[Rfam]
RNA sequence: UUGGAUCGUCGGUGAUCUACCUCCUCCCAGAAAGCCGACAGACUGAUGCGGUGCUCCUCCUCCCGCGCCGCAAUUCAGAUUGAAGCCCGCCGCUCCUCCUCCCGCGGCGGGCUUUUCUU
Numbered sequence: 001u002u003g004g005a006u007c008g009u010c011g012g013u014g015a016u017c018u019a020c021c022u023c024c025u026c027c028c029a030g031a032a033a034g035c036c037g038a039c040a041g042a043c044u045g046a047u048g049c050g051g052u053g054c055u056c057c058u059c060c061u062c063c064c065g066c067g068c069c070g071c072a073a074u075u076c077a078g079a080u081u082g083a084a085g086c087c088c089g090c091c092g093c094u095c096c097u098c099c100u101c102c103c104g105c106g107g108c109g110g111g112c113u114u115u116u117c118u119u
Base pairs, nucleotide, nucleotide: 008039009038011036012035013034016031017030045076046075047072048071049070050069051068052067083114084113085112086111087110088109089108090107091106092105093104
This 119-nucleotide sequence from Mesorhizobium sp. J18 belongs to the Rfam family "Alphaproteobacterial ar14". From the family's description: Smr14C2 was renamed NfeR1 (Nodule Formation Efficiency RNA) highly expressed in salt stress and during the symbiotic interaction on legume roots. Rfam 15.1 lists 784 matches to the family in 332 species.